[Rfam]
RNA sequence: UGCCCUGUGAUGACACCAUCCUUGCUCCCCGUGUGCCCCCCGGGGCUGUGGGUGACACCUUGGCUGCCCCGGACUGGGCCAGGUGGGCCAGUGUCCGGGGGCUGAGGGCA
Numbered sequence: 001u002g003c004c005c006u007g008u009g010a011u012g013a014c015a016c017c018a019u020c021c022u023u024g025c026u027c028c029c030c031g032u033g034u035g036c037c038c039c040c041c042g043g044g045g046c047u048g049u050g051g052g053u054g055a056c057a058c059c060u061u062g063g064c065u066g067c068c069c070c071g072g073a074c075u076g077g078g079c080c081a082g083g084u085g086g087g088c089c090a091g092u093g094u095c096c097g098g099g100g101g102c103u104g105a106g107g108g109c110a
Base pairs, nucleotide, nucleotide: 001110002109003108004107005106